[Rfam]
RNA: Mammalian CPEB3 ribozyme
RNA sequence: UCACAAGUUCGAGACCAUAGCAGAAGUGCUCAUAGUGUGUCCUGUCAGAUUCCAACAAAUCUGUGAAUUCUGCU
Numbered sequence: 001u002c003a004c005a006a007g008u009u010c011g012a013g014a015c016c017a018u019a020g021c022a023g024a025a026g027u028g029c030u031c032a033u034a035g036u037g038u039g040u041c042c043u044g045u046c047a048g049a050u051u052c053c054a055a056c057a058a059a060u061c062u063g064u065g066a067a068u069u070c071u072g073c074u
Stems, first nucleotide, its partner, number of pairs: 011042001013040001016039001019074007026038003046063006